[Rfam]
RNA sequence: GGAACCUGUACACGUUGCGGUGCAACGAUUGUAAAAGC
Numbered sequence: 001g002g003a004a005c006c007u008g009u010a011c012a013c014g015u016u017g018c019g020g021u022g023c024a025a026c027g028a029u030u031g032u033a034a035a036a037g038c
Base pairs, nucleotide, nucleotide: 005031013027014026015025016024017023018022

This 38-nucleotide RNA sequence from Zhenpiania hominis belongs to the Rfam family "Selenocysteine insertion sequence 4". On this family, see Graentzdoerffer et al., Arch Microbiol 2001: "Molecular analysis of the grd operon coding for genes of the glycine reductase and of the thioredoxin system from Clostridium sticklandii". NCBI's taxonomy places the organism under Bacteria, Bacillati, Peptostreptococcales, Anaerovoracaceae, Zhenpiania.